[Rfam]
RNA sequence: AGCUUUGCACAGUGGCAGUAUUGUAGCCAAUGAGGUUUAUCCGAGGCGCAAUUAUUGCUAACUGAAAUACUAGUUGCAAGCUAAAAAGAAGGCAGUCUGCUCUUCUCAUUAUGCUUUCACAAUUUUUAACAAGUUAACUGAGUAAC
Numbered sequence: 001a002g003c004u005u006u007g008c009a010c011a012g013u014g015g016c017a018g019u020a021u022u023g024u025a026g027c028c029a030a031u032g033a034g035g036u037u038u039a040u041c042c043g044a045g046g047c048g049c050a051a052u053u054a055u056u057g058c059u060a061a062c063u064g065a066a067a068u069a070c071u072a073g074u075u076g077c078a079a080g081c082u083a084a085a086a087a088g089a090a091g092g093c094a095g096u097c098u099g100c101u102c103u104u105c106u107c108a109u110u111a112u113g114c115u116u117u118c119a120c121a122a123u124u125u126u127u128a129a130c131a132a133g134u135u136a137a138c139u140g141a142g143u144a145a146c
Stems, first nucleotide, its partner, number of pairs: 020052005026047003034042002088118007133146004
Shown here is a 146-nucleotide RNA sequence from Lynx pardinus, a member of the family "U4 spliceosomal RNA". It is annotated as a spliceosomal small nuclear RNA. The organism belongs to Lynx, within Eukaryota. Rfam links the family to the GO terms spliceosomal tri-snRNP complex assembly and U4 snRNP.